Fluoride riboswitch aptamer (crcB RNA motif): a 65-nucleotide sequence from Amycolatopsis sp. M39.
[Rfam]
RNA sequence: GGCGGCGACGGUGAUGAUGCCCGCCGAAACCGCGCCCUUCCCGCGCUGAUGGCGUCUGCUUCCUG
Numbered sequence: 001g002g003c004g005g006c007g008a009c010g011g012u013g014a015u016g017a018u019g020c021c022c023g024c025c026g027a028a029a030c031c032g033c034g035c036c037c038u039u040c041c042c043g044c045g046c047u048g049a050u051g052g053c054g055u056c057u058g059c060u061u062c063c064u065g
Stems, first nucleotide, its partner, number of pairs: 010025004016056006032046004

Its family is annotated with positive regulation of gene expression and response to fluoride in the Gene Ontology. The match comes from Rfam's covariance-model search (39 bits).